[Rfam]
Annotation: The family of this 35-nucleotide sequence from Dyadobacter luteus is "DUF805b RNA". The family's RNA type in Rfam is cis-regulatory element. The family's consensus secondary structure is taken from published work. A search with the family's covariance model found it, with a score of 36 bits. The family is grouped with related families in Rfam's "DUF805 clan".
RNA sequence: UCAGGGAUAGCCGAAAACCUGCAAUAGAGUAAGCG
Numbered sequence: 001u002c003a004g005g006g007a008u009a010g011c012c013g014a015a016a017a018c019c020u021g022c023a024a025u026a027g028a029g030u031a032a033g034c035g
Stems, first nucleotide, its partner, number of pairs: 002021004010034002